[Rfam]
Background
This 160-nucleotide sequence from Carnegiea gigantea belongs to the Rfam family "U1 spliceosomal RNA". NCBI's taxonomy places the organism under Eukaryota, Streptophytina, Tracheophyta, Pentapetalae, Carnegiea. A search with the family's covariance model found it, with a score of 113 bits. Rfam classes the family as a spliceosomal small nuclear RNA.
RNA sequence: UUACUUACCUGGCUGGGGUCAAUGGGUGAUCAAGAAGGCUCAUGGCCUAGGUAGGUGGUCACCAUUGCACUUGGGAGGUGUGCUUGCCUAACGUCUCUUCAAAGGGGAGAGCAUACGUCAUAAUUUAUGGCAGCAGGGCCUGCGUUCGCGCGGCCUCUAU
Numbered sequence: 001u002u003a004c005u006u007a008c009c010u011g012g013c014u015g016g017g018g019u020c021a022a023u024g025g026g027u028g029a030u031c032a033a034g035a036a037g038g039c040u041c042a043u044g045g046c047c048u049a050g051g052u053a054g055g056u057g058g059u060c061a062c063c064a065u066u067g068c069a070c071u072u073g074g075g076a077g078g079u080g081u082g083c084u085u086g087c088c089u090a091a092c093g094u095c096u097c098u099u100c101a102a103a104g105g106g107g108a109g110a111g112c113a114u115a116c117g118u119c120a121u122a123a124u125u126u127a128u129g130g131c132a133g134c135a136g137g138g139c140c141u142g143c144g145u146u147c148g149c150g151c152g153g154c155c156u157c158u159a160u
Base pairs, nucleotide, nucleotide: 012119014117015116016048017047018046019045020044021043023042024041025040026039027038049089050088051087055083056082057081060078062075063074091114093112094110095109096108098107099106135158136157137156138155141152142151143150144149